A member of the RNA family "SAM riboswitch aptamer (S box leader)" from Saccharopolyspora thermophila, 91 nucleotides long.

[Rfam]
RNA sequence: AAUCCAUCCCGAGCGGCCGAGAGACCUGGCUCCGAGACGCCGCAGCAACCACCCGACCCCGGGCAGGUGCUAACGCCAGGACCGAUGGAGU
Numbered sequence: 001a002a003u004c005c006a007u008c009c010c011g012a013g014c015g016g017c018c019g020a021g022a023g024a025c026c027u028g029g030c031u032c033c034g035a036g037a038c039g040c041c042g043c044a045g046c047a048a049c050c051a052c053c054c055g056a057c058c059c060c061g062g063g064c065a066g067g068u069g070c071u072a073a074c075g076c077c078a079g080g081a082c083c084g085a086u087g088g089a090g091u
Stems, first nucleotide, its partner, number of pairs: 001091001003089006013043005021032003026079004044071004049067002052062002075083001

From the family's description: The SAM riboswitch is found upstream of a number of genes which code for proteins involved in methionine or cysteine biosynthesis in Gram-positive bacteria.